RNA sequence: AUCUAAGCAAAAAUUACUUUUUAGGUUCAUUUAUUUAAUGAUGUAUGUGAUCCAUAAUAUGGAUCACAUACAUCAUUAAAUGAAUGAACCUAAAAAGUAAUUUUUACUUAUAU
Numbered sequence: 001a002u003c004u005a006a007g008c009a010a011a012a013a014u015u016a017c018u019u020u021u022u023a024g025g026u027u028c029a030u031u032u033a034u035u036u037a038a039u040g041a042u043g044u045a046u047g048u049g050a051u052c053c054a055u056a057a058u059a060u061g062g063a064u065c066a067c068a069u070a071c072a073u074c075a076u077u078a079a080a081u082g083a084a085u086g087a088a089c090c091u092a093a094a095a096a097g098u099a100a101u102u103u104u105u106a107c108u109u110a111u112a113u
Stems, first nucleotide, its partner, number of pairs: 002112001004110004009105005015099010026088018048066004
RNA: MIR2593 microRNA precursor family